The record is a 124-nucleotide RNA from Aliiroseovarius crassostreae, which matches "Alphaproteobacterial ar14" in Rfam. A reference for the family is del Val et al. (2012), "A survey of sRNA families in alpha-proteobacteria", RNA Biol. The family's RNA type in Rfam is small RNA. Taxonomically the source falls in Aliiroseovarius (Bacteria, Pseudomonadati, Pseudomonadota, Rhodobacterales). The family has 118 seed sequences and 784 matches in Rfam 15.1. Rfam describes the family as follows. Smr14C2 was renamed NfeR1 (Nodule Formation Efficiency RNA) highly expressed in salt stress and during the symbiotic interaction on legume roots. A search with the family's covariance model found it, with a score of 59 bits. The base pairs follow the family's consensus structure.

[Rfam]
RNA sequence: AAAAUUGCAGACGGGUCGCUCCUCCCUGACCCGGACGCAGCUGAGCCGGCUUUCUCCUCCUCCCUGAGAGCCGCGCCACAGAAAGAACGGCGAUGCCCCUCCUCCCUGGCAUCGCCGUUUUUUU
Numbered sequence: 001a002a003a004a005u006u007g008c009a010g011a012c013g014g015g016u017c018g019c020u021c022c023u024c025c026c027u028g029a030c031c032c033g034g035a036c037g038c039a040g041c042u043g044a045g046c047c048g049g050c051u052u053u054c055u056c057c058u059c060c061u062c063c064c065u066g067a068g069a070g071c072c073g074c075g076c077c078a079c080a081g082a083a084a085g086a087a088c089g090g091c092g093a094u095g096c097c098c099c100u101c102c103u104c105c106c107u108g109g110c111a112u113c114g115c116c117g118u119u120u121u122u123u124u
Base pairs, nucleotide, nucleotide: 007038008037012033013032014031015030016029017028043077047073048072049071050070051069052068086119087118088117089116090115091114092113093112094111095110096109